The record is a 131-nucleotide RNA sequence, which matches "LOOT RNA" in Rfam.

[Rfam]
RNA sequence: ACCCUAACCCUUUUUGGGAACAAAGAAGGUAUGGGAUAAAAAACCUACCACAGGGGCAUACAGCUCCUCGUCAGAGCAACCUGUGGUAGGUCAAUGUCUGAAAGGGCAUUGGGUAGCCCGAGAGGGCUAUC
Numbered sequence: 001a002c003c004c005u006a007a008c009c010c011u012u013u014u015u016g017g018g019a020a021c022a023a024a025g026a027a028g029g030u031a032u033g034g035g036a037u038a039a040a041a042a043a044c045c046u047a048c049c050a051c052a053g054g055g056g057c058a059u060a061c062a063g064c065u066c067c068u069c070g071u072c073a074g075a076g077c078a079a080c081c082u083g084u085g086g087u088a089g090g091u092c093a094a095u096g097u098c099u100g101a102a103a104g105g106g107c108a109u110u111g112g113g114u115a116g117c118c119c120g121a122g123a124g125g126g127c128u129a130u131c
Stems, first nucleotide, its partner, number of pairs: 002035003009029007044090011063077004092111008112131008